[Rfam]
RNA: c-di-AMP riboswitch aptamer (ydaO/yuaA leader)
Organism: Streptomyces sp. WAC06614
RNA sequence: GAAACGCAAUCGACCAUUCAUGCGUGCGGCAGGAGCGGGGGAACCAGGUACGCCGCCGAUUCGGAUCUUCGGGUCCGGACGGCUAGGGGUGAAGCCGCGUCGCGACGCGGCCGGACAUCUCCCGUCCGAACCCGACAGCUCACCUCGCAGGCGCCGGAGAGGAAUUCG
Numbered sequence: 001g002a003a004a005c006g007c008a009a010u011c012g013a014c015c016a017u018u019c020a021u022g023c024g025u026g027c028g029g030c031a032g033g034a035g036c037g038g039g040g041g042a043a044c045c046a047g048g049u050a051c052g053c054c055g056c057c058g059a060u061u062c063g064g065a066u067c068u069u070c071g072g073g074u075c076c077g078g079a080c081g082g083c084u085a086g087g088g089g090u091g092a093a094g095c096c097g098c099g100u101c102g103c104g105a106c107g108c109g110g111c112c113g114g115a116c117a118u119c120u121c122c123c124g125u126c127c128g129a130a131c132c133c134g135a136c137a138g139c140u141c142a143c144c145u146c147g148c149a150g151g152c153g154c155c156g157g158a159g160a161g162g163a164a165u166u167c168g
Stems, first nucleotide, its partner, number of pairs: 005033001035148006045086001087133003095110004113127004